[Rfam]
RNA sequence: GAACCUGAGAGUUUGAUCCUGGCUCAGAGCGAACGCUGGCGGAAUGCUUAACACAUGCAAGUCUCACGGGCAGCAAUGUCAGUGGCGGACGGGUGAGUAACGCGUAGGAAUGUGUCCUGGGAUGGGGGAUAACGUCGGGAAACUGGCGCUAAUACCGCAUAUGAGCUGAGGCUCAAAGCCGCAAGGCGUCUUGGGAGCAGCCUGCGUCCGAUUAGCUUGUUGGUGGGGUAAAGGCUUACCAAGGCGACGAUCGGUAGCUGGUCUGAGAGGAUGAUCAGCCACACUGGAACUGAGACACGGUCCAGACUCCUACGGGAGGCAGCAGUGGGGAAUAUUGGACAAUGGGCGCAAGCCUGAUCCAGCAAUUCCGCGUGGGUGAAGAAGGUCUUCGGAUUGUAAAGCCCUUUCGACGGGGACGAUGAUGACGGUACCCGUAGAAGAAGCCCCGGCUAACUUCGUGCCAGCAGCCGCGGUAAUACGAAGGGGGCUAGCGUUGCUCGGAAUGACUG
Numbered sequence: 001g002a003a004c005c006u007g008a009g010a011g012u013u014u015g016a017u018c019c020u021g022g023c024u025c026a027g028a029g030c031g032a033a034c035g036c037u038g039g040c041g042g043a044a045u046g047c048u049u050a051a052c053a054c055a056u057g058c059a060a061g062u063c064u065c066a067c068g069g070g071c072a073g074c075a076a077u078g079u080c081a082g083u084g085g086c087g088g089a090c091g092g093g094u095g096a097g098u099a100a101c102g103c104g105u106a107g108g109a110a111u112g113u114g115u116c117c118u119g120g121g122a123u124g125g126g127g128g129a130u131a132a133c134g135u136c137g138g139g140a141a142a143c144u145g146g147c148g149c150u151a152a153u154a155c156c157g158c159a160u161a162u163g164a165g166c167u168g169a170g171g172c173u174c175a176a177a178g179c180c181g182c183a184a185g186g187c188g189u190c191u192u193g194g195g196a197g198c199a200g201c202c203u204g205c206g207u208c209c210g211a212u213u214a215g216c217u218u219g220u221u222g223g224u225g226g227g228g229u230a231a232a233g234g235c236u237u238a239c240c241a242a243g244g245c246g247a248c249g250a251u252c253g254g255u256a257g258c259u260g261g262u263c264u265g266a267g268a269g270g271a272u273g274a275u276c277a278g279c280c281a282c283a284c285u286g287g288a289a290c291u292g293a294g295a296c297a298c299g300g301u302c303c304a305g306a307c308u309c310c311u312a313c314g315g316g317a318g319g320c321a322g323c324a325g326u327g328g329g330g331a332a333u334a335u336u337g338g339a340c341a342a343u344g345g346g347c348g349c350a351a352g353c354c355u356g357a358u359c360c361a362g363c364a365a366u367u368c369c370g371c372g373u374g375g376g377u378g379a380a381g382a383a384g385g386u387c388u389u390c391g392g393a394u395u396g397u398a399a400a401g402c403c404c405u406u407u408c409g410a411c412g413g414g415g416a417c418g419a420u421g422a423u424g425a426c427g428g429u430a431c432c433c434g435u436a437g438a439a440g441a442a443g444c445c446c447c448g449g450c451u452a453a454c455u456u457c458g459u460g461c462c463a464g465c466a467g468c469c470g471c472g473g474u475a476a477u478a479c480g481a482a483g484g485g486g487g488c489u490a491g492c493g494u495u496g497c498u499c500g501g502a503a504u505g506a507c508u509g
Stems, first nucleotide, its partner, number of pairs: 009025005027499004032495006039371006045364002047329001052327003056324003061086003066083002069080004093282003102207007111199002116195007124158001126156002133148006164173003178187003208254003215245003220242008257279004261272004284305005307318004335361001337360003343356005374404004384395004408440001410435005418426001443488005454483005464471002
A member of the RNA family "Bacterial small subunit ribosomal RNA" from Roseococcus sp. SYP-B2431, 509 nucleotides of a longer RNA.
It scores 1538 bits against the family's covariance model.